[Rfam]
RNA sequence: AUUCAAACAGAAGGAGUCAUUUUGUUUGUGUCGGGAGUGUUCCACACUGCGUUCUGUCAUGACGACUUCCGGUGUUGUCCUGUCGGCGAAGGCAUCUAACUAUACUGGGAUUUACAGAUACUCGGGACAGUCUUCAGCUUUGCAUUCACCUUGUUCCCAAAGACAAGAUCCGCAGCUAAGGUUCAAAGCAGCACCGGGACCCAUCUCGAGUUGGAGUCAAAGUUUCGUACUUGUCUGGUGUUGUGGCGGUCCUAGCCGUGGGUUGAGUCUGAGGUUGCCGGGUCGCACUGUUGGACUGGGUUGUAUCGUUGGAUCUUGGACAGGCCUGGUUGGGAUAGGUAGUCCUGGUUGUCCUCUCGCCAGAAAUGGUGCGGAGGGCAACCCCCCGCUGUGGGGA
Numbered sequence: 001a002u003u004c005a006a007a008c009a010g011a012a013g014g015a016g017u018c019a020u021u022u023u024g025u026u027u028g029u030g031u032c033g034g035g036a037g038u039g040u041u042c043c044a045c046a047c048u049g050c051g052u053u054c055u056g057u058c059a060u061g062a063c064g065a066c067u068u069c070c071g072g073u074g075u076u077g078u079c080c081u082g083u084c085g086g087c088g089a090a091g092g093c094a095u096c097u098a099a100c101u102a103u104a105c106u107g108g109g110a111u112u113u114a115c116a117g118a119u120a121c122u123c124g125g126g127a128c129a130g131u132c133u134u135c136a137g138c139u140u141u142g143c144a145u146u147c148a149c150c151u152u153g154u155u156c157c158c159a160a161a162g163a164c165a166a167g168a169u170c171c172g173c174a175g176c177u178a179a180g181g182u183u184c185a186a187a188g189c190a191g192c193a194c195c196g197g198g199a200c201c202c203a204u205c206u207c208g209a210g211u212u213g214g215a216g217u218c219a220a221a222g223u224u225u226c227g228u229a230c231u232u233g234u235c236u237g238g239u240g241u242u243g244u245g246g247c248g249g250u251c252c253u254a255g256c257c258g259u260g261g262g263u264u265g266a267g268u269c270u271g272a273g274g275u276u277g278c279c280g281g282g283u284c285g286c287a288c289u290g291u292u293g294g295a296c297u298g299g300g301u302u303g304u305a306u307c308g309u310u311g312g313a314u315c316u317u318g319g320a321c322a323g324g325c326c327u328g329g330u331u332g333g334g335a336u337a338g339g340u341a342g343u344c345c346u347g348g349u350u351g352u353c354c355u356c357u358c359g360c361c362a363g364a365a366a367u368g369g370u371g372c373g374g375a376g377g378g379c380a381a382c383c384c385c386c387c388g389c390u391g392u393g394g395g396g397a
Stems, first nucleotide, its partner, number of pairs: 198218003201214003220232004
A member of the RNA family "Ascomycota telomerase RNA" from Fusarium sp. AF-6, 397 nucleotides of a longer RNA. On this family, see Qi et al., Nucleic Acids Res 2013: "The common ancestral core of vertebrate and fungal telomerase RNAs". It is annotated as a non-coding RNA gene.